[Rfam]
RNA: Actino-pnp RNA
Organism: Virgisporangium ochraceum
RNA sequence: ACCGGUCCUCGGUAGUGGCUUUCGGAUCUGCUGCAAAACCGCAAACCGCGAGCUUCGAUCGAAGACCGGC
Number, nucleotide and partner (000 for none) at each position: 001a000002c069003c068004g067005g066006u065007c064008c000009u062010c061011g060012g059013u058014a000015g000016u000017g054018g053019c052020u051021u050022u000023c048024g047025g046026a000027u000028c000029u044030g042031c000032u000033g000034c000035a000036a000037a000038a000039c000040c000041g000042c030043a000044a029045a000046c025047c024048g023049c000050g021051a020052g019053c018054u017055u000056c000057g000058a013059u012060c011061g010062a009063a000064g007065a006066c005067c004068g003069g002070c000